[Rfam]
RNA sequence: GUUACCUUUAAGUCAGUCCAGAGAGGCUGGCAAGGUGUUGCAGAAUAGGAUUCUGCAUGCAUAGAGUUGCUCAGGAAUUGACCUGACCAACUUAUGUAAAAAGCAUCUUGCCAUGAAUGGUAAGAUGCUUUUUUUAU
Numbered sequence: 001g002u003u004a005c006c007u008u009u010a011a012g013u014c015a016g017u018c019c020a021g022a023g024a025g026g027c028u029g030g031c032a033a034g035g036u037g038u039u040g041c042a043g044a045a046u047a048g049g050a051u052u053c054u055g056c057a058u059g060c061a062u063a064g065a066g067u068u069g070c071u072c073a074g075g076a077a078u079u080g081a082c083c084u085g086a087c088c089a090a091c092u093u094a095u096g097u098a099a100a101a102a103g104c105a106u107c108u109u110g111c112c113a114u115g116a117a118u119g120g121u122a123a124g125a126u127g128c129u130u131u132u133u134u135u136a137u
Stems, first nucleotide, its partner, number of pairs: 003037006013030006064093006071086005099132014

Notes:
The family of this 137-nucleotide RNA from Litchfieldia salsa is "PyrR binding site". A reference for the family is Bonner et al. (2001), "Molecular recognition of pyr mRNA by the Bacillus subtilis attenuation regulatory protein PyrR", Nucleic Acids Res. The match comes from Rfam's covariance-model search (67 bits). From the family's description: This family represents the PyrR binding site and terminator structure. This RNA structure is found upstream of a variety of genes involved in pyrimidine biosynthesis and transport. Its family is annotated with pyrimidine nucleobase biosynthetic process and pyrimidine nucleobase transport in the Gene Ontology.